The record is an 83-nucleotide RNA sequence from Bisgaardia hudsonensis, which matches "Aggregatibacter sRNA 69" in Rfam. A reference for the family is Oogai et al. (2017), "Small RNA repertoires and their intraspecies variation in Aggregatibacter actinomycetemcomitans", DNA Res. From the family's description: Validated by RT-PCR. Has Rho-independent terminator.
RNA sequence: CACAUGAUGAGGAUUUAUGGUUGCUAUUUUUUUUCAGACGAACAAUAAUAGUACUCUGAUUAGCAAGAGUAAAUAUAUUUCUU
Numbered sequence: 001c002a003c004a005u006g007a008u009g010a011g012g013a014u015u016u017a018u019g020g021u022u023g024c025u026a027u028u029u030u031u032u033u034u035c036a037g038a039c040g041a042a043c044a045a046u047a048a049u050a051g052u053a054c055u056c057u058g059a060u061u062a063g064c065a066a067g068a069g070u071a072a073a074u075a076u077a078u079u080u081c082u083u
Base pairs, nucleotide, nucleotide: 011064016059019056022053023052024051025050026049027048028047031045032044067078069076070075
Dot-bracket structure: ..........(....(..(..(((((((..((...........)).)))))))..)..)....)..(.((....)).).....
Pairs were carried over by alignment from the consensus structure, which was predicted with RNAfold.